[Rfam]
RNA sequence: GGCAAAAUAGGAUUAAGCGCGUAAAGUGCCAGAUGGAUGGGAAGUUGCCACUGGACGAAAAAUCCUGGCGAUAAAUAUAUUUAUGGCCAGUGAUUUGCGGUGCUUAUUCCGCAUUCAUUAUC
Numbered sequence: 001g002g003c004a005a006a007a008u009a010g011g012a013u014u015a016a017g018c019g020c021g022u023a024a025a026g027u028g029c030c031a032g033a034u035g036g037a038u039g040g041g042a043a044g045u046u047g048c049c050a051c052u053g054g055a056c057g058a059a060a061a062a063u064c065c066u067g068g069c070g071a072u073a074a075a076u077a078u079a080u081u082u083a084u085g086g087c088c089a090g091u092g093a094u095u096u097g098c099g100g101u102g103c104u105u106a107u108u109c110c111g112c113a114u115u116c117a118u119u120a121u122c
Base pairs, nucleotide, nucleotide: 001122002121004119005118010110011109012108014106015105016104017103018102019101020099021098022097026056027055029054030053031052032051034050035049036048040116041115042114044112060096061095062094063093

Rfam assigns this 122-nucleotide RNA sequence from Calorimonas adulescens to the family "THF (Tetrahydrofolate) riboswitch aptamer".
The source organism's lineage runs through Bacteria, Bacillati, Bacillota, Thermoanaerobacterales and Calorimonas.
The match comes from Rfam's covariance-model search (70 bits).
Pairs were carried over by alignment from the consensus structure, which is taken from published work.